[Rfam]
RNA sequence: GAUCUGGGCGAGAAGUUGUUUCGUAGUGUACAAGCGGUUUAACCAACAGGCUAUGGGGAAAGUCUCUGUGCAACUAUCGCCGAAAGGGCGCUCGGGGAAUCCGUUGAGAUAUCGAGGUUCAAUCUGUGCGUAGUACUUUUGAACCUCCCUGUCACACAUGCCGUCGCCAAACUCAGUCAAUACAACUAAUCCACAUCCACAAAAUAGAGCUUAUCCACGUUCCAGAU
Numbered sequence: 001g002a003u004c005u006g007g008g009c010g011a012g013a014a015g016u017u018g019u020u021u022c023g024u025a026g027u028g029u030a031c032a033a034g035c036g037g038u039u040u041a042a043c044c045a046a047c048a049g050g051c052u053a054u055g056g057g058g059a060a061a062g063u064c065u066c067u068g069u070g071c072a073a074c075u076a077u078c079g080c081c082g083a084a085a086g087g088g089c090g091c092u093c094g095g096g097g098a099a100u101c102c103g104u105u106g107a108g109a110u111a112u113c114g115a116g117g118u119u120c121a122a123u124c125u126g127u128g129c130g131u132a133g134u135a136c137u138u139u140u141g142a143a144c145c146u147c148c149c150u151g152u153c154a155c156a157c158a159u160g161c162c163g164u165c166g167c168c169a170a171a172c173u174c175a176g177u178c179a180a181u182a183c184a185a186c187u188a189a190u191c192c193a194c195a196u197c198c199a200c201a202a203a204a205u206a207g208a209g210c211u212u213a214u215c216c217a218c219g220u221u222c223c224a225g226a227u
Stems, first nucleotide, its partner, number of pairs: 002227007009219002014187006021056007037044001060212003064209004078090004091106001095102002108153003114147009126136004189196002